[Rfam]
RNA: mir-33 microRNA precursor family
Organism: Dicentrarchus labrax
RNA sequence: CUGUGGUGCAUUGUAGUUGCAUUGCAUGUUAAGUUACAGUGCAAUGGAUCUGCUUUGCAACACAG
Numbered sequence: 001c002u003g004u005g006g007u008g009c010a011u012u013g014u015a016g017u018u019g020c021a022u023u024g025c026a027u028g029u030u031a032a033g034u035u036a037c038a039g040u041g042c043a044a045u046g047g048a049u050c051u052g053c054u055u056u057g058c059a060a061c062a063c064a065g
Stems, first nucleotide, its partner, number of pairs: 001065004006061001007059004013053004021045007